The family of this 370-nucleotide RNA sequence from endosymbiont of Galathealinum brachiosum is "Bacterial RNase P class A". The family's RNA type in Rfam is ribozyme. It scores 320 bits against the family's covariance model.
[Rfam]
RNA sequence: GAAGUUGGCUGGACAAUCGCUGUAUGAUUUUAUCGUAGAGAGGAAAGUCCGGGCUCCAAAGGGCAGGGUGCCAGGUAACGCCUGGGGGGUGUAAGAACCUACGGCUAGUGCAGCAGAAAGAUACCGCCUUAAUUUGCUAAUUUAGUAUUUUGGGGUAAGGGUGAAAUGGUGCGGUAAGAGCGCACCGCGUUUACUGGUAACAGUGGCGGCUAGGUAAACCCCACCUGGAGCAAGACCAAAUAGAGAAGCUGAGGCGUGGCCCGCGCUGCUUCUGGGUAGGUUGCUUGAGGCGCAUAGCGAUGUGCGUCCUAGAUGAAUGAUUGUCACAACUUCGGUUGUACAGAACCCGGCUUAUAGGCCAGCUUCCCUA
Numbered sequence: 001g002a003a004g005u006u007g008g009c010u011g012g013a014c015a016a017u018c019g020c021u022g023u024a025u026g027a028u029u030u031u032a033u034c035g036u037a038g039a040g041a042g043g044a045a046a047g048u049c050c051g052g053g054c055u056c057c058a059a060a061g062g063g064c065a066g067g068g069u070g071c072c073a074g075g076u077a078a079c080g081c082c083u084g085g086g087g088g089g090u091g092u093a094a095g096a097a098c099c100u101a102c103g104g105c106u107a108g109u110g111c112a113g114c115a116g117a118a119a120g121a122u123a124c125c126g127c128c129u130u131a132a133u134u135u136g137c138u139a140a141u142u143u144a145g146u147a148u149u150u151u152g153g154g155g156u157a158a159g160g161g162u163g164a165a166a167u168g169g170u171g172c173g174g175u176a177a178g179a180g181c182g183c184a185c186c187g188c189g190u191u192u193a194c195u196g197g198u199a200a201c202a203g204u205g206g207c208g209g210c211u212a213g214g215u216a217a218a219c220c221c222c223a224c225c226u227g228g229a230g231c232a233a234g235a236c237c238a239a240a241u242a243g244a245g246a247a248g249c250u251g252a253g254g255c256g257u258g259g260c261c262c263g264c265g266c267u268g269c270u271u272c273u274g275g276g277u278a279g280g281u282u283g284c285u286u287g288a289g290g291c292g293c294a295u296a297g298c299g300a301u302g303u304g305c306g307u308c309c310u311a312g313a314u315g316a317a318u319g320a321u322u323g324u325c326a327c328a329a330c331u332u333c334g335g336u337u338g339u340a341c342a343g344a345a346c347c348c349g350g351c352u353u354a355u356a357g358g359c360c361a362g363c364u365u366c367c368c369u370a
Stems, first nucleotide, its partner, number of pairs: 001366010011355001012325007020040002023037006045353003049350005054230004061262004066226005071085005086102001087100004103221002108219002110215002124160002126156007168186006187210001188208003192205005234282004244273006253267005289308008